[Rfam]
RNA: rpsB sRNA
RNA sequence: CACACGCGGAUGCGGGAGAGGCACAUGGGAGUUUCGGCUCCCCACAUAGUGUUUUCUCCCUCCGGUGCCGGAUAGUCCGGUCACAUCAUCCGCGGCGGAUCAACCGGAAAAGGAUAUUA
Numbered sequence: 001c002a003c004a005c006g007c008g009g010a011u012g013c014g015g016g017a018g019a020g021g022c023a024c025a026u027g028g029g030a031g032u033u034u035c036g037g038c039u040c041c042c043c044a045c046a047u048a049g050u051g052u053u054u055u056c057u058c059c060c061u062c063c064g065g066u067g068c069c070g071g072a073u074a075g076u077c078c079g080g081u082c083a084c085a086u087c088a089u090c091c092g093c094g095g096c097g098g099a100u101c102a103a104c105c106g107g108a109a110a111a112g113g114a115u116a117u118u119a
Stems, first nucleotide, its partner, number of pairs: 001097001003095001005094006014060008067081006